About this RNA
The family of this 89-nucleotide sequence from Sesamum indicum is "Small nucleolar RNA R44/J54/Z268 family". It is annotated as a C/D-box small nucleolar RNA. The family is grouped with related families in Rfam's "SNORD74 clan". Gene Ontology terms of the family: nucleolus and RNA processing. Lineage of the source: Eukaryota > Spermatophyta > Magnoliopsida > Pentapetalae > Sesamum. The family's consensus secondary structure was predicted with PFOLD.
RNA sequence: UUUGCAAGUGAUGACAAAAUAGACAGGGACAUCAGAUCUCCUUUUAGGAGAAAGAUGACUUGGUCUAAUGGGAAUCUCUCUGAUGCUAU
Numbered sequence: 001u002u003u004g005c006a007a008g009u010g011a012u013g014a015c016a017a018a019a020u021a022g023a024c025a026g027g028g029a030c031a032u033c034a035g036a037u038c039u040c041c042u043u044u045u046a047g048g049a050g051a052a053a054g055a056u057g058a059c060u061u062g063g064u065c066u067a068a069u070g071g072g073a074a075u076c077u078c079u080c081u082g083a084u085g086c087u088a089u
Stems, first nucleotide, its partner, number of pairs: 002088001004086003
Dot-bracket structure: .(.(((.............................................................................))).).